The record is a 77-nucleotide RNA sequence from Parnassius apollo, which matches "Mammalian CPEB3 ribozyme" in Rfam. The family's consensus secondary structure is taken from published work. Lineage of the source: Eukaryota > Metazoa > Ecdysozoa > Panorpida > Parnassius.
RNA sequence: UAGGGACCCCAGCAGGUCAUUGUAGAAGCGUGCUCGUCGCGACCCCUGCCAGCCCUUUUCAGGGCUGCAAUUCUACA
Numbered sequence: 001u002a003g004g005g006a007c008c009c010c011a012g013c014a015g016g017u018c019a020u021u022g023u024a025g026a027a028g029c030g031u032g033c034u035c036g037u038c039g040c041g042a043c044c045c046c047u048g049c050c051a052g053c054c055c056u057u058u059u060c061a062g063g064g065c066u067g068c069a070a071u072u073c074u075a076c077a
Stems, first nucleotide, its partner, number of pairs: 015044004021077007028040003050067007
Record summary
Rfam's curators write: The mammalian CPEB3 ribozyme is a self cleaving RNA located in the second intron of the CPEB3 gene which belongs to a family of genes regulating messenger RNA polyadenylation. This ribozyme is highly conserved and found only in mammals. The CPEB3 ribozyme is structurally and biochemically related to the human hepatitis delta virus (HDV) ribozyme and the HDV ribozyme is proposed to have arisen from the human transcriptome. It scores 50 bits against the family's covariance model.